[Rfam]
RNA sequence: UAACCAUCCAGAGCGGCCGAGAGACUUGGCUUGUCGACGCCGCAGCAACCCGUGACCACCACAGGGUGCUAACGCCAAGGUCGAUGGAGU
Numbered sequence: 001u002a003a004c005c006a007u008c009c010a011g012a013g014c015g016g017c018c019g020a021g022a023g024a025c026u027u028g029g030c031u032u033g034u035c036g037a038c039g040c041c042g043c044a045g046c047a048a049c050c051c052g053u054g055a056c057c058a059c060c061a062c063a064g065g066g067u068g069c070u071a072a073c074g075c076c077a078a079g080g081u082c083g084a085u086g087g088a089g090u
Stems, first nucleotide, its partner, number of pairs: 004087005013043005021032003026078004044070004049066002052062003074082001